Annotation
The record is a 102-nucleotide RNA from Metabacillus litoralis, which matches "Purine riboswitch aptamer" in Rfam.
RNA sequence: CAUUUAAUUGCAAAUAACGCUCAUAUAAUCGUGGGAAUAUGGCCCACAAGUUUCUACCAAAUAACCGUAAAUUAUUUGACUAUGAGUGAGGUUAAAUGUUUC
Numbered sequence: 001c002a003u004u005u006a007a008u009u010g011c012a013a014a015u016a017a018c019g020c021u022c023a024u025a026u027a028a029u030c031g032u033g034g035g036a037a038u039a040u041g042g043c044c045c046a047c048a049a050g051u052u053u054c055u056a057c058c059a060a061a062u063a064a065c066c067g068u069a070a071a072u073u074a075u076u077u078g079a080c081u082a083u084g085a086g087u088g089a090g091g092u093u094a095a096a097u098g099u100u101u102c
Stems, first nucleotide, its partner, number of pairs: 018088008029049001031047005058078007

A reference for the family is Batey et al. (2004), "Structure of a natural guanine-responsive riboswitch complexed with the metabolite hypoxanthine", Nature. The match comes from Rfam's covariance-model search (94 bits). Taxonomically the source falls in Metabacillus (Bacteria, Bacillota, Caryophanales, Bacillaceae).